[Rfam]
Rfam assigns this 270-nucleotide RNA from Zea mays to the family "Early nodulin 40". Taxonomically the source falls in Zea (Eukaryota, Streptophytina, Magnoliopsida, Andropogonodae).

RNA sequence: AAGAAGCAUGGCAGGAGUGUCUGCAUGGGUCCUGAGAGUCGCGUGAGCAGCGAAGCAGUUCACGGAUGGUUGGAUGGAGGGCAAUGACCAGCUGCUGAGCUGCUGCUGCUCCUCCUGGUCGACCAUCAGUUUGUAUUUGUCCAUGCCUCGUGUAGCCGGCCGUCUUCUUGCCCUGGCUUGUCCAGUUCCGGAAGGCGGGCAGGCCCGGUGAGGCGUGGACAGAGACCGGCAAGUCAGAGAUCGGCAAUAGUGAGCUCCAGCAGGAGCCUA
Number, nucleotide and partner (000 for none) at each position: 001a000002a000003g000004a000005a000006g000007c000008a000009u000010g000011g000012c000013a000014g000015g000016a000017g000018u000019g000020u000021c000022u000023g000024c000025a000026u000027g000028g000029g000030u000031c000032c000033u000034g000035a000036g000037a000038g000039u000040c000041g000042c000043g000044u000045g000046a000047g000048c000049a000050g000051c000052g000053a000054a000055g000056c000057a000058g000059u000060u000061c000062a000063c000064g000065g000066a000067u000068g000069g000070u000071u000072g115073g114074a113075u000076g000077g000078a000079g000080g000081g000082c000083a000084a000085u000086g000087a000088c000089c000090a000091g000092c000093u000094g000095c000096u000097g000098a000099g000100c000101u000102g000103c000104u000105g000106c000107u000108g000109c000110u000111c000112c000113u074114c073115c072116u000117g000118g000119u000120c000121g000122a000123c000124c000125a000126u000127c000128a000129g226130u225131u224132u223133g220134u219135a000136u000137u000138u000139g000140u000141c000142c000143a000144u000145g000146c213147c212148u211149c210150g209151u208152g000153u000154a000155g000156c000157c000158g000159g000160c000161c000162g000163u000164c000165u000166u000167c000168u000169u000170g000171c000172c000173c000174u000175g000176g000177c000178u000179u000180g000181u000182c000183c000184a000185g000186u000187u000188c000189c000190g000191g000192a000193a000194g000195g000196c000197g000198g000199g000200c000201a000202g000203g000204c000205c000206c000207g000208g151209u150210g149211a148212g147213g146214c000215g000216u000217g000218g000219a134220c133221a000222g000223a132224g131225a130226c129227c000228g000229g000230c000231a000232a000233g000234u000235c000236a000237g000238a000239g000240a000241u000242c000243g000244g000245c000246a000247a000248u000249a000250g000251u000252g000253a000254g267255c266256u265257c264258c000259a000260g000261c000262a000263g000264g257265a256266g255267c254268c000269u000270a000
Gene Ontology term of the family: nodulation.